[Rfam]
RNA sequence: CCUGCGGUGGACGGUAUGUCCAAAAUGGGUUGUUGUGCAGCGUGAACCUGCUGCACGAGGACGACUUUACGUCCUCAGCAUGAGCGCCGCGCUUCGUCGCGCGCUGCUCCCUGUGUGCCACGCCCCCGGAAGGGGCGUGGCAUUGCAGGUAU
Number, nucleotide and partner (000 for none) at each position: 001c000002c000003u000004g000005c000006g000007g000008u000009g021010g020011a019012c018013g000014g000015u000016a000017u000018g012019u011020c010021c009022a000023a000024a000025a000026u000027g000028g000029g000030u000031u000032g079033u078034u077035g056036u055037g054038c053039a052040g051041c050042g049043u000044g000045a000046a000047c000048c000049u042050g041051c040052u039053g038054c037055a036056c035057g076058a075059g074060g073061a072062c071063g070064a000065c000066u000067u000068u000069a000070c063071g062072u061073c060074c059075u058076c057077a034078g033079c032080a000081u000082g109083a108084g107085c106086g105087c000088c000089g102090c101091g100092c099093u000094u000095c000096g000097u000098c000099g092100c091101g090102c089103g000104c000105u086106g085107c084108u083109c082110c149111c148112u147113g146114u000115g143116u142117g141118c140119c139120a138121c137122g136123c135124c134125c133126c132127c000128g000129g000130a000131a000132g126133g125134g124135g123136c122137g121138u120139g119140g118141c117142a116143u115144u000145g000146c113147a112148g111149g110150u000151a000152u000
RNA: sbcD RNA